[Rfam]
RNA sequence: UUUCCAGGUUCCCCAGUAAGGCUCCCAGUGAGCCGGAGUAUUUUCCUUAUAUGAUCAGGCUCUAUUGGGGGCGGUGCUGCUUGCCUGGAGCCUGAGAGGAUUAUGAAAAGUGUCAGGCGGAGUGGAGCGAGGGGACCUGGUG
Numbered sequence: 001u002u003u004c005c006a007g008g009u010u011c012c013c014c015a016g017u018a019a020g021g022c023u024c025c026c027a028g029u030g031a032g033c034c035g036g037a038g039u040a041u042u043u044u045c046c047u048u049a050u051a052u053g054a055u056c057a058g059g060c061u062c063u064a065u066u067g068g069g070g071g072c073g074g075u076g077c078u079g080c081u082u083g084c085c086u087g088g089a090g091c092c093u094g095a096g097a098g099g100a101u102u103a104u105g106a107a108a109a110g111u112g113u114c115a116g117g118c119g120g121a122g123u124g125g126a127g128c129g130a131g132g133g134g135a136c137c138u139g140g141u142g
Base pairs, nucleotide, nucleotide: 001142003140005139006138007137008136009135011134012133013132014131021128022127023126024125025124055095056094057093058092059091060090062088063087067084069082070081071080072079073078
Overview:
This 142-nucleotide RNA from Octodon degus belongs to the Rfam family "small Cajal body-specific RNA 17". Rfam 15.1 lists 262 matches to the family in 128 species. Rfam describes the family as follows. scaRNAs are a specific class of small nuclear RNAs which localise to the Cajal bodies and guide the modification of RNA polymerase II transcribed spliceosomal RNAs U1, U2, U4, U5 and U12. The complete human U12-22/U4-8 scaRNA is composed of two tandem C/D box domains (termed U12-22 and U4-8). Its family is annotated with nucleolus, RNA processing and Cajal body in the Gene Ontology.